A member of the RNA family "mir-24 microRNA precursor family" from Tetraodon nigroviridis, 70 nucleotides long. Rfam's curators put it in the seed alignment. Its family is annotated with miRNA-mediated post-transcriptional gene silencing and RISC complex in the Gene Ontology. Taxonomically the source falls in Tetraodon (Eukaryota, Clupeocephala, Ctenosquamata, Percomorphaceae). From the family's description: This family represents the microRNA (miRNA) mir-24 family. miRNAs are transcribed as ~70nt precursors (modelled here) and subsequently processed by the Dicer enzyme to give a ~22nt product. In this case the mature sequence comes from the 3' arm of the precursor. The extents of the hairpin precursors are not generally known and are estimated based on hairpin prediction. On this family, see Lagos-Quintana et al., Science 2001: "Identification of novel genes coding for small expressed RNAs".
[Rfam]
RNA sequence: CUUCCUGUGCCUACUGAGCUGAUAUGCAGUUGUACAGAACCACUGGCUCAGUUCAGCAGGAACAGGAGUC
Numbered sequence: 001c002u003u004c005c006u007g008u009g010c011c012u013a014c015u016g017a018g019c020u021g022a023u024a025u026g027c028a029g030u031u032g033u034a035c036a037g038a039a040c041c042a043c044u045g046g047c048u049c050a051g052u053u054c055a056g057c058a059g060g061a062a063c064a065g066g067a068g069u070c
Stems, first nucleotide, its partner, number of pairs: 002068004007063002010060003014056009027045004